RNA sequence: AUUUUCAGAUAAUCGCGGUUUGACUUGAUCAAGCUGAGGAAAGUCCAUGCUCGCACAAGCUGCGAUGCUUGUAGUGUUCGUGCCUAGCGAAACCAUAAGCUAGGGUACUUUAAUAAAAGUAACGGCAGGAAAAAACGGCUAAGGCUUUGCUAUGCCCCAGUAUCCUUGAAAGUGCCACAGUGACGAAGCAACAUGGGAAACCUUGUUGGUGGAACGCGGUAAACCCCUCGAGCGAGCAACCCAAACAAUGGUAGGGGCGCUUUUUGUAACGGAAAUGAACGGGACAAAGAGGCAAUUUUAUUGCAGAUAGAUGAUUAUCCAAGUUAUUCUGCUCCCUGUAGAAUAAUUGGACAAAACAUGGCUUAUAGAA
Numbered sequence: 001a002u003u004u005u006c007a008g009a010u011a012a013u014c015g016c017g018g019u020u021u022g023a024c025u026u027g028a029u030c031a032a033g034c035u036g037a038g039g040a041a042a043g044u045c046c047a048u049g050c051u052c053g054c055a056c057a058a059g060c061u062g063c064g065a066u067g068c069u070u071g072u073a074g075u076g077u078u079c080g081u082g083c084c085u086a087g088c089g090a091a092a093c094c095a096u097a098a099g100c101u102a103g104g105g106u107a108c109u110u111u112a113a114u115a116a117a118a119g120u121a122a123c124g125g126c127a128g129g130a131a132a133a134a135a136c137g138g139c140u141a142a143g144g145c146u147u148u149g150c151u152a153u154g155c156c157c158c159a160g161u162a163u164c165c166u167u168g169a170a171a172g173u174g175c176c177a178c179a180g181u182g183a184c185g186a187a188g189c190a191a192c193a194u195g196g197g198a199a200a201c202c203u204u205g206u207u208g209g210u211g212g213a214a215c216g217c218g219g220u221a222a223a224c225c226c227c228u229c230g231a232g233c234g235a236g237c238a239a240c241c242c243a244a245a246c247a248a249u250g251g252u253a254g255g256g257g258c259g260c261u262u263u264u265u266g267u268a269a270c271g272g273a274a275a276u277g278a279a280c281g282g283g284a285c286a287a288a289g290a291g292g293c294a295a296u297u298u299u300a301u302u303g304c305a306g307a308u309a310g311a312u313g314a315u316u317a318u319c320c321a322a323g324u325u326a327u328u329c330u331g332c333u334c335c336c337u338g339u340a341g342a343a344u345a346a347u348u349g350g351a352c353a354a355a356a357c358a359u360g361g362c363u364u365a366u367a368g369a370a
Base pairs, nucleotide, nucleotide: 004370005369006368007366008319009318010317011316012315013314014313016036017035018034019033020032021031041364042363043362045361046360047359048358049357050236051235052234053233054232055072056071057070058069059068060067078231079230080229082227083104084103085102086101087100088099105123106121107120108119109118110117111116124226125225127166128165129164130163137156138155139154143151144150145149172224173223174220175219176218189208190207191206192205193204195202196201240256241255242254260291261290262289263288264287265286266285292304293303294302295301296300322348323347324346325345326344327343328342329341330340331339332338

Record summary
The family of this 370-nucleotide RNA from Enterococcus saccharolyticus is "Bacterial RNase P class B". The literature on the family includes a 1998 paper in Annu Rev Biochem by Frank and Pace, "Ribonuclease P: unity and diversity in a tRNA processing ribozyme". Taxonomically the source falls in Enterococcus saccharolyticus subsp. saccharolyticus (Bacteria, Bacillati, Lactobacillales, Enterococcaceae). Clan: RNaseP clan. Its family is annotated with tRNA processing, ribonuclease P activity and dimeric ribonuclease P complex in the Gene Ontology.